[Rfam]
RNA sequence: GCAUGGCUGAAUUCUGCACUAGCUUUCCUCAGUAGCUAAAGCAGUCAGACACCAUGCCAGAGCAAAUUCCUUUUUCCCUCUCCUUGAUGUGCCUUUCCUACAGGAAUGGGCAUGGCCUUGGAAGGGGAAUACAG
Numbered sequence: 001g002c003a004u005g006g007c008u009g010a011a012u013u014c015u016g017c018a019c020u021a022g023c024u025u026u027c028c029u030c031a032g033u034a035g036c037u038a039a040a041g042c043a044g045u046c047a048g049a050c051a052c053c054a055u056g057c058c059a060g061a062g063c064a065a066a067u068u069c070c071u072u073u074u075u076c077c078c079u080c081u082c083c084u085u086g087a088u089g090u091g092c093c094u095u096u097c098c099u100a101c102a103g104g105a106a107u108g109g110g111c112a113u114g115g116c117c118u119u120g121g122a123a124g125g126g127g128a129a130u131a132c133a134g
Stems, first nucleotide, its partner, number of pairs: 001057006014044004068128002071126006082120001086116001088114007
Dot-bracket structure: ((((((.......((((.......................)))).......))))))..........((.((((((.....(...(.(((((((.............))))))).)...)))))))))......